[Rfam]
This 244-nucleotide RNA from Streptomyces genisteinicus belongs to the Rfam family "Streptomyces sRNA 4677". Lineage of the source: Bacteria > Bacillati > Actinomycetota > Streptomycetaceae > Streptomyces. Located in the intergenic region between anti-sigma factor SCO4677 gene and a putative regulatory protein gene SCO4676. scr4677 expression requires the SCO4677 activity and scr4677 sRNA itself seem to affect the levels of the SCO4676-associated transcripts. The base pairs follow the family's consensus structure. For this family Rfam cites "Complex intra-operonic dynamics mediated by a small RNA in Streptomyces coelicolor" (Hindra et al., PLoS One, 2014). It scores 102 bits against the family's covariance model.
Nucleotides: 244
Stems, first nucleotide, its partner, number of pairs: 007224004017078001020075001091106006121157001123155003180216005186210002191205004227242005
Number, partner (000 for none) and nucleotide at each position: 001000c002000g003000a004000u005000c006000c007224g008223g009222u010221g011000c012000u013000c014000c015000g016000c017078g018000a019000c020075g021000c022000g023000g024000c025000a026000g027000c028000g029000c030000a031000c032000g033000a034000c035000c036000c037000u038000a039000a040000a041000a042000g043000a044000c045000c046000a047000a048000a049000g050000a051000a052000c053000c054000u055000g056000g057000u058000g059000a060000a061000a062000g063000a064000a065000c066000c067000a068000c069000c070000c071000a072000c073000c074000c075020c076000a077000c078017c079000c080000c081000a082000c083000c084000g085000g086000u087000c088000c089000c090000a091106u092105c093104a094103c095102c096101c097000u098000c099000c100000c101096g102095g103094g104093u105092g106091a107000c108000u109000u110000u111000g112000c113000c114000c115000g116000a117000u118000c119000c120000g121157g122000c123155u124154g125153g126000a127000u128000u129000c130000c131000g132000g133000g134000c135000g136000g137000g138000u139000u140000g141000g142000c143000g144000g145000g146000c147000a148000u149000a150000u151000g152000c153125u154124c155123g156000c157121c158000g159000c160000g161000a162000c163000a164000a165000c166000c167000c168000c169000a170000g171000a172000c173000a174000u175000g176000c177000g178000a179000c180216g181215g182214c183213c184212c185000c186210c187209g188000g189000c190000c191205g192204g193203g194202a195000c196000u197000c198000g199000c200000a201000a202194u203193c204192c205191c206000g207000a208000u209187c210186g211000a212184g213183g214182g215181c216180c217000u218000g219000a220000c221010c222009a223008c224007c225000g226000a227242g228241g229240a230239a231238g232000c233000u234000g235000g236000a237000a238231c239230u240229u241228c242227c243000c244000g